[Rfam]
The family of this 264-nucleotide RNA from Medicago truncatula is "MIR2655 microRNA precursor family". Rfam 15.1 lists 892 matches to the family in 5 species.
RNA sequence: CCCAAAAGUAAUAAAAAGUUCGUUUAAGUCCCUUAACUUUAUUUCAAGUAUCGGUUUGGUCCCUUCUGUUAAUUUAAUUGAAAAAACGUUAAAUUUUGGUCCCUUAACUUAUUUAAUCAGUAUUAUUUUGGUCCCUUAUCUUAUUUAAUAGUAUUAGUUUGAUCCCUAAACUUAAAUUUUUUUGAAUUAAAUUAACAGAAAUGAUCAAACUGAUACUUUAAAUAAAGUUAAGGGACUUAAUCAGACCUUUUAUUAUUUAUGGGA
Numbered sequence: 001c002c003c004a005a006a007a008g009u010a011a012u013a014a015a016a017a018g019u020u021c022g023u024u025u026a027a028g029u030c031c032c033u034u035a036a037c038u039u040u041a042u043u044u045c046a047a048g049u050a051u052c053g054g055u056u057u058g059g060u061c062c063c064u065u066c067u068g069u070u071a072a073u074u075u076a077a078u079u080g081a082a083a084a085a086a087c088g089u090u091a092a093a094u095u096u097u098g099g100u101c102c103c104u105u106a107a108c109u110u111a112u113u114u115a116a117u118c119a120g121u122a123u124u125a126u127u128u129u130g131g132u133c134c135c136u137u138a139u140c141u142u143a144u145u146u147a148a149u150a151g152u153a154u155u156a157g158u159u160u161g162a163u164c165c166c167u168a169a170a171c172u173u174a175a176a177u178u179u180u181u182u183u184g185a186a187u188u189a190a191a192u193u194a195a196c197a198g199a200a201a202u203g204a205u206c207a208a209a210c211u212g213a214u215a216c217u218u219u220a221a222a223u224a225a226a227g228u229u230a231a232g233g234g235a236c237u238u239a240a241u242c243a244g245a246c247c248u249u250u251u252a253u254u255a256u257u258u259a260u261g262g263g264a
Stems, first nucleotide, its partner, number of pairs: 002262003006258003024240002027237003031233013046218002